A member of the RNA family "ALIL pseudoknot" from Pukyongiella litopenaei, 117 nucleotides long. Taxonomically the source falls in Pukyongiella (Bacteria, Pseudomonadota, Alphaproteobacteria, Rhodobacterales). The match comes from Rfam's covariance-model search (117 bits). The family's consensus secondary structure is taken from published work. By type it is a cis-regulatory element.
RNA sequence: GGCUUAUUUUGCCCAGGCGGAGCUCGACCGCCUGUUCCGCAAAUGAUCGCCUUCAUCGAGAAGCAUCGCGGGGUCUUUGGGGUCGAGCCGAUCUGCCGUGUCCUGCAGAUUGCCCCA
Numbered sequence: 001g002g003c004u005u006a007u008u009u010u011g012c013c014c015a016g017g018c019g020g021a022g023c024u025c026g027a028c029c030g031c032c033u034g035u036u037c038c039g040c041a042a043a044u045g046a047u048c049g050c051c052u053u054c055a056u057c058g059a060g061a062a063g064c065a066u067c068g069c070g071g072g073g074u075c076u077u078u079g080g081g082g083u084c085g086a087g088c089c090g091a092u093c094u095g096c097c098g099u100g101u102c103c104u105g106c107a108g109a110u111u112g113c114c115c116c117a
Stems, first nucleotide, its partner, number of pairs: 016032005078117005089112002092109005098103001